[Rfam]
RNA sequence: CUCGACCGGUCGGUCAUGUACCGACCCACAAGUGGAGGCUCCGAACUCCCACCUGAUCGUCCUUCGGGACGGCGGGUCACCCCGGUCAGGCGGCCACCAUCGUUCCGUACGGACGAUGGAGCCGUCCGAAAUCGCGCCCCGCGUUCAUCGCGGCGGUGCUCCGGUAGUGCUUGGAGCCCCGCCUGUGAUCGUCCGGGGCAUUUUUU
Numbered sequence: 001c002u003c004g005a006c007c008g009g010u011c012g013g014u015c016a017u018g019u020a021c022c023g024a025c026c027c028a029c030a031a032g033u034g035g036a037g038g039c040u041c042c043g044a045a046c047u048c049c050c051a052c053c054u055g056a057u058c059g060u061c062c063u064u065c066g067g068g069a070c071g072g073c074g075g076g077u078c079a080c081c082c083c084g085g086u087c088a089g090g091c092g093g094c095c096a097c098c099a100u101c102g103u104u105c106c107g108u109a110c111g112g113a114c115g116a117u118g119g120a121g122c123c124g125u126c127c128g129a130a131a132u133c134g135c136g137c138c139c140c141g142c143g144u145u146c147a148u149c150g151c152g153g154c155g156g157u158g159c160u161c162c163g164g165u166a167g168u169g170c171u172u173g174g175a176g177c178c179c180c181g182c183c184u185g186u187g188a189u190c191g192u193c194c195g196g197g198g199c200a201u202u203u204u205u206u
Stems, first nucleotide, its partner, number of pairs: 004087006012022002023078005029055002032052004036047002057072006089126005097119008136199006142191002149187003152183005158177005
The record is a 206-nucleotide RNA from Streptomyces sp. PAN_FS17, which matches "Streptomyces RNA 1601" in Rfam. It scores 188 bits against the family's covariance model. The literature on the family includes a 2011 paper in RNA Biol by Vockenhuber et al., "Deep sequencing-based identification of small non-coding RNAs in Streptomyces coelicolor". Rfam describes the family as follows. Identified by deep sequencing of transcriptome at the end of exponential growth phase.